[Rfam]
RNA sequence: AGCCUUAUUCUAGAUGGAAAUGGGCACUGUCAUUCAUGGUAUCCAGAAAUUGUUAAUGUAGGUACAUUGAGACAUGGGUUAUGCUUCCAUUACAGCAAGUUCAUUGCAAUGGUGAGUUACAAUGAGACUUGUAACAUUU
Numbered sequence: 001a002g003c004c005u006u007a008u009u010c011u012a013g014a015u016g017g018a019a020a021u022g023g024g025c026a027c028u029g030u031c032a033u034u035c036a037u038g039g040u041a042u043c044c045a046g047a048a049a050u051u052g053u054u055a056a057u058g059u060a061g062g063u064a065c066a067u068u069g070a071g072a073c074a075u076g077g078g079u080u081a082u083g084c085u086u087c088c089a090u091u092a093c094a095g096c097a098a099g100u101u102c103a104u105u106g107c108a109a110u111g112g113u114g115a116g117u118u119a120c121a122a123u124g125a126g127a128c129u130u131g132u133a134a135c136a137u138u139u
Stems, first nucleotide, its partner, number of pairs: 003061001006058003021045004026040002074132005088114005
RNA: Small nucleolar RNA SNORA1
Organism: Nyctereutes procyonoides